[Rfam]
RNA: MIR1120/MIR1122 microRNA precursor family
RNA sequence: AUACUCCCUCUAUCCCAUAAUAUAAGAGUGUUUUUGGCACUAGCGUAGUGUCAAAAACGCUCUUAUAUUAUGGGAAGGAGGGAAUAC
Numbered sequence: 001a002u003a004c005u006c007c008c009u010c011u012a013u014c015c016c017a018u019a020a021u022a023u024a025a026g027a028g029u030g031u032u033u034u035u036g037g038c039a040c041u042a043g044c045g046u047a048g049u050g051u052c053a054a055a056a057a058c059g060c061u062c063u064u065a066u067a068u069u070a071u072g073g074g075a076a077g078g079a080g081g082g083a084a085u086a087c
Base pairs, nucleotide, nucleotide: 003085005083007081008080009079010078011077013075014074015073016072017071019069020068021067022066023065024064025063026062027061028060029059030058031057032056033055034054035053036052037051038050039049040048041047